[Rfam]
The record is a 53-nucleotide RNA, which matches "Glutamine riboswitch aptamer (glnA leader)" in Rfam. The sequence is in the family's curated seed alignment. On this family, see Ren et al., Cell Rep 2015: "Structural and Dynamic Basis for Low-Affinity, High-Selectivity Binding of L-Glutamine by the Glutamine Riboswitch".
RNA sequence: AUCGUUCAUCUUUGAAAAAAGACGGAAGUAGGCAAAAGCCGAAGGAACGCGAG
Numbered sequence: 001a002u003c004g005u006u007c008a009u010c011u012u013u014g015a016a017a018a019a020a021g022a023c024g025g026a027a028g029u030a031g032g033c034a035a036a037a038g039c040c041g042a043a044g045g046a047a048c049g050c051g052a053g
Stems, first nucleotide, its partner, number of pairs: 003049005009022005025050001031040003